[Rfam]
Rfam assigns this 145-nucleotide sequence from Salvator merianae to the family "Small nucleolar RNA SNORA79". The base pairs follow the family's consensus structure, which was predicted with RNAalifold. A reference for the family is Schattner et al. (2006), "A computational screen for mammalian pseudouridylation guide H/ACA RNAs", RNA. From the family's description: ACA65 (SNORA79) is a member of the H/ACA class of snoRNAs that guide the sites of modification of uridines to pseudouridines. This snoRNA was identified by computational screening and its expression in mouse experimentally verified by Northern blot and primer extension analysis. The family has 25 seed sequences and 944 matches in Rfam 15.1. Lineage of the source: Eukaryota > Metazoa > Bilateria > Teiidae > Salvator.
RNA sequence: UGAUGACUGUUCCUCUUGCUGUUGCAAGCUCAGACAGUGAGAUUUGAAGUCAUCAAAUAUUAAAGUUGACUUUUCUUCACUCAAGGUGUCUUUGGAUGGGUUGGCUGUCCGUUGGCACUCUUGAACUUUGCGGGGUCACACAUUC
Number, nucleotide and partner (000 for none) at each position: 001u055002g054003a053004u052005g051006a050007c049008u048009g000010u000011u000012c000013c000014u042015c041016u040017u039018g038019c000020u036021g035022u034023u033024g000025c000026a000027a000028g000029c000030u000031c000032a000033g023034a022035c021036a020037g000038u018039g017040a016041g015042a014043u000044u000045u000046g000047a000048a008049g007050u006051c005052a004053u003054c002055a001056a000057a000058u000059a000060u000061u000062a000063a000064a000065g000066u000067u000068g137069a136070c135071u134072u133073u132074u000075c000076u000077u000078c000079a000080c000081u124082c123083a122084a121085g120086g118087u117088g116089u115090c114091u000092u000093u000094g110095g109096a108097u107098g106099g000100g000101u000102u000103g000104g000105c000106u098107g097108u096109c095110c094111g000112u000113u000114g090115g089116c088117a087118c086119u000120c085121u084122u083123g082124a081125a000126c000127u000128u000129u000130g000131c000132g073133g072134g071135g070136u069137c068138a000139c000140a000141c000142a000143u000144u000145c000